[Rfam]
RNA sequence: UUCGAGCCAAUAAAGACUAAGAAUAUUGACUCAAGAACUAA
Numbered sequence: 001u002u003c004g005a006g007c008c009a010a011u012a013a014a015g016a017c018u019a020a021g022a023a024u025a026u027u028g029a030c031u032c033a034a035g036a037a038c039u040a041a
Stems, first nucleotide, its partner, number of pairs: 001035002004032003008028004
The record is a 41-nucleotide sequence from Helianthus annuus, which matches "Plastid-rpl16 group II-D1 intron" in Rfam. Rfam 15.1 lists 1,446 matches to the family in 693 species. Rfam links the family to the GO term Group II intron splicing. Pairs were carried over by alignment from the consensus structure, which was predicted with LocARNA. About the family: Plastid-rpl16 is a non-coding RNA (ncRNA) recognised in plastids.